The record is a 132-nucleotide RNA from Acyrthosiphon pisum, which matches "U11 spliceosomal RNA" in Rfam.
Lineage of the source: Eukaryota > Bilateria > Aphidomorpha > Aphidoidea > Acyrthosiphon.
The match comes from Rfam's covariance-model search (87 bits).
[Rfam]
RNA sequence: UAAAAGGGUGUCUUCCGCUUGCAUGGAACGUUCGGCCAAUACGGUCUGAGCGGGGUAUGGCCAUCAAUACAUACCCGACACAUAAUUUUUUGAACUGCGGGCAGUUGGCUACCCUCGAGUGCCGGCGCCUGC
Numbered sequence: 001u002a003a004a005a006g007g008g009u010g011u012c013u014u015c016c017g018c019u020u021g022c023a024u025g026g027a028a029c030g031u032u033c034g035g036c037c038a039a040u041a042c043g044g045u046c047u048g049a050g051c052g053g054g055g056u057a058u059g060g061c062c063a064u065c066a067a068u069a070c071a072u073a074c075c076c077g078a079c080a081c082a083u084a085a086u087u088u089u090u091u092g093a094a095c096u097g098c099g100g101g102c103a104g105u106u107g108g109c110u111a112c113c114c115u116c117g118a119g120u121g122c123c124g125g126c127g128c129c130u131g132c
Stems, first nucleotide, its partner, number of pairs: 008081005013028005029052007036044002053076007099130004104126005110121003113117001